Shown here is a 101-nucleotide RNA from Neobacillus rhizophilus, a member of the family "Purine riboswitch aptamer". The family's consensus secondary structure is taken from published work. Riboswitches are metabolite binding domains within certain messenger RNAs that serve as precision sensors for their corresponding targets. Taxonomically the source falls in Neobacillus (Bacteria, Bacillati, Bacillota, Bacillaceae).

RNA sequence: AAUUUAAUAGGUGAUAACCUUCAUAUAUCCUCGAUAAUAGGUUCGAGAGUCUCUACCGGGCUGCCGUAAAUGGCCUGACUAUGAAGGCAGAAUUGGUUAAG
Numbered sequence: 001a002a003u004u005u006a007a008u009a010g011g012u013g014a015u016a017a018c019c020u021u022c023a024u025a026u027a028u029c030c031u032c033g034a035u036a037a038u039a040g041g042u043u044c045g046a047g048a049g050u051c052u053c054u055a056c057c058g059g060g061c062u063g064c065c066g067u068a069a070a071u072g073g074c075c076u077g078a079c080u081a082u083g084a085a086g087g088c089a090g091a092a093u094u095g096g097u098u099a100a101g
Stems, first nucleotide, its partner, number of pairs: 018087008030047005057077007